RNA sequence: CGAUUGGAUCCUACGGUUGCGCCCAGGCACACGCCUGCCUAACGGUUGGCUGAAUGCGCUGGGUGCUGGUCAGCAUGGGUUGACCGGGCGGGACAAAACCGGGGGUUGUUACCCCGGCUAUGUCGCCUGGUCGAUCGAGGAACGAAGGGCGCUCUCUGAGUCCUCCGGGAACUGCGUCCUCAAGAUGCUGGCGGAAAGGUUCCAAUCGGCCCGUCUUGAAACACGG
Numbered sequence: 001c002g003a004u005u006g007g008a009u010c011c012u013a014c015g016g017u018u019g020c021g022c023c024c025a026g027g028c029a030c031a032c033g034c035c036u037g038c039c040u041a042a043c044g045g046u047u048g049g050c051u052g053a054a055u056g057c058g059c060u061g062g063g064u065g066c067u068g069g070u071c072a073g074c075a076u077g078g079g080u081u082g083a084c085c086g087g088g089c090g091g092g093a094c095a096a097a098a099c100c101g102g103g104g105g106u107u108g109u110u111a112c113c114c115c116g117g118c119u120a121u122g123u124c125g126c127c128u129g130g131u132c133g134a135u136c137g138a139g140g141a142a143c144g145a146a147g148g149g150c151g152c153u154c155u156c157u158g159a160g161u162c163c164u165c166c167g168g169g170a171a172c173u174g175c176g177u178c179c180u181c182a183a184g185a186u187g188c189u190g191g192c193g194g195a196a197a198g199g200u201u202c203c204a205a206u207c208g209g210c211c212c213g214u215c216u217u218g219a220a221a222c223a224c225g226g
Base pairs, nucleotide, nucleotide: 001208002207003206004205005204006203007202008201010199011198012197020065021064022063023062024061025060026059070191071190072189073188074187075186076185211226212225213224214223
Shown here is a 226-nucleotide part of an RNA from Chlorella variabilis, a member of the family "Eukaryotic large subunit ribosomal RNA". It scores 2899 bits against the family's covariance model. Taxonomically the source falls in Chlorella (Eukaryota, Chlorophyta, Chlorellales, Chlorellaceae). The family's consensus secondary structure is taken from published work.